A member of the RNA family "MIR164 microRNA precursor family" from Dioscorea zingiberensis, 67 nucleotides long. The match comes from Rfam's covariance-model search (70 bits). Rfam links the family to the GO terms miRNA-mediated post-transcriptional gene silencing and RISC complex. The literature on the family includes a 2002 paper in Genes Dev by Reinhart et al., "MicroRNAs in plants".
RNA sequence: UGGAGAAGGGGAGCACGUGCAGAGAUGGAGCUACAGUGAAGCUUUGCACGUGCCCUGCUUCUCCAUC
Numbered sequence: 001u002g003g004a005g006a007a008g009g010g011g012a013g014c015a016c017g018u019g020c021a022g023a024g025a026u027g028g029a030g031c032u033a034c035a036g037u038g039a040a041g042c043u044u045u046g047c048a049c050g051u052g053c054c055c056u057g058c059u060u061c062u063c064c065a066u067c
Stems, first nucleotide, its partner, number of pairs: 001065008010056002013053012028034001